[Rfam]
RNA sequence: AAGUAUCUCCGAGUUCACCGAAUCUUUCGGUGAAUAGGAGUAACGGCUGGUUGGCACAGCCAUCGACGUUCCUGUUUGACAAGGAAACUGGUGCGUUUGCACCUCAAGAACAGGUCACGUCGUAAACCACAAUAUCCCAAACCAGCGGUGCGGUGCCGUGGGAAUCCUCGCGCUUCAGCGCGGGGA
Numbered sequence: 001a002a003g004u005a006u007c008u009c010c011g012a013g014u015u016c017a018c019c020g021a022a023u024c025u026u027u028c029g030g031u032g033a034a035u036a037g038g039a040g041u042a043a044c045g046g047c048u049g050g051u052u053g054g055c056a057c058a059g060c061c062a063u064c065g066a067c068g069u070u071c072c073u074g075u076u077u078g079a080c081a082a083g084g085a086a087a088c089u090g091g092u093g094c095g096u097u098u099g100c101a102c103c104u105c106a107a108g109a110a111c112a113g114g115u116c117a118c119g120u121c122g123u124a125a126a127c128c129a130c131a132a133u134a135u136c137c138c139a140a141a142c143c144a145g146c147g148g149u150g151c152g153g154u155g156c157c158g159u160g161g162g163a164a165u166c167c168u169c170g171c172g173c174u175u176c177a178g179c180g181c182g183g184g185g186a
Stems, first nucleotide, its partner, number of pairs: 003044002007040004013035009045061005064122006071114007090103005135163004165186009
Sense overlapping transcript RNA 0042 (sot): a 186-nucleotide RNA from Halorubrum cibi. By type it is a small RNA. A search with the family's covariance model found it, with a score of 171 bits. For this family Rfam cites "Sense overlapping transcripts in IS1341-type transposase genes are functional non-coding RNAs in archaea" (Gomes-Filho et al., RNA Biol, 2015). Rfam's curators write: It is associated with IS1341-type transposase (tnpB) genes, at the 3'-end in H. salinarum NRC-1. The tetraloop structural motif may be functional. Taxonomically the source falls in Halorubrum (Archaea, Methanobacteriota, Halobacteria, Halobacteriales).